[Rfam]
RNA: Small nucleolar RNA U2-19
RNA sequence: GAUCUGUGAUGAGAAUUAGCCAAAUCUGACUACCAGAAGAUAAAAUAAUCUUCUAGGUGCCAUGAUUUGUUUGCAAUUCUGAGA
Numbered sequence: 001g002a003u004c005u006g007u008g009a010u011g012a013g014a015a016u017u018a019g020c021c022a023a024a025u026c027u028g029a030c031u032a033c034c035a036g037a038a039g040a041u042a043a044a045a046u047a048a049u050c051u052u053c054u055a056g057g058u059g060c061c062a063u064g065a066u067u068u069g070u071u072u073g074c075a076a077u078u079c080u081g082a083g084a
Stems, first nucleotide, its partner, number of pairs: 031059004038051004